Description:
mir-2807 microRNA precursor family: an 84-nucleotide sequence from Bombyx mori. The family's consensus secondary structure was predicted with RNAalifold. NCBI's taxonomy places the organism under Eukaryota, Insecta, Aparaglossata, Ditrysia, Bombyx.

RNA sequence: UUCACUCAAAUUUCUACGGAGUCGGACCAUUUGCCUACGUUCGCCGCUAGGGGCGCUGUUCCGACUGUAUACAAAUUUUAGUUA
Numbered sequence: 001u002u003c004a005c006u007c008a009a010a011u012u013u014c015u016a017c018g019g020a021g022u023c024g025g026a027c028c029a030u031u032u033g034c035c036u037a038c039g040u041u042c043g044c045c046g047c048u049a050g051g052g053g054c055g056c057u058g059u060u061c062c063g064a065c066u067g068u069a070u071a072c073a074a075a076u077u078u079u080a081g082u083u084a
Base pairs, nucleotide, nucleotide: 008078009077010076011075012074013073015071016070018068020066021065022064023063024062025061026060028058029057034052035051036050039047040046